[Rfam]
RNA: tRNA
Organism: Delitschia confertaspora
RNA sequence: GGGCGUGUAGCUCAGUGGUAGAGCGCCCGCUUUGCAUUGUAUAAUCUGCGGGAGGUCUAGGGUUCGAUCCCCUACCCGUCCA
Number, nucleotide and partner (000 for none) at each position: 001g081002g080003g079004c078005g077006u000007g075008u000009a000010g024011c023012u022013c021014a000015g000016u000017g000018g000019u000020a000021g013022a012023g011024c010025g000026c052027c051028c050029g049030c048031u000032u000033u000034g000035c000036a000037u000038u000039g000040u000041a000042u000043a000044a000045u000046c000047u000048g030049c029050g028051g027052g026053a000054g000055g000056u000057c000058u074059a073060g072061g071062g070063u000064u000065c000066g000067a000068u000069c000070c062071c061072c060073u059074a058075c007076c000077c005078g004079u003080c002081c001082a000